[Rfam]
The record is a 46-nucleotide sequence from Rosistilla oblonga, which matches "Acido-Lenti-1 RNA" in Rfam. Rfam 15.1 lists 2,607 matches to the family in 171 species. Pairs were carried over by alignment from the consensus structure, which is taken from published work. The source organism's lineage runs through Bacteria, Pseudomonadati, Planctomycetota, Pirellulaceae and Rosistilla. Rfam classes the family as a small RNA.
RNA sequence: CCUGGGACUUGCGUCCCAGGCUAUUGCAUUCCGUGGCUUCGCCACU
Numbered sequence: 001c002c003u004g005g006g007a008c009u010u011g012c013g014u015c016c017c018a019g020g021c022u023a024u025u026g027c028a029u030u031c032c033g034u035g036g037c038u039u040c041g042c043c044a045c046u
Base pairs, nucleotide, nucleotide: 001020002019003018004017005016006015007014008013033045034044035043036042037041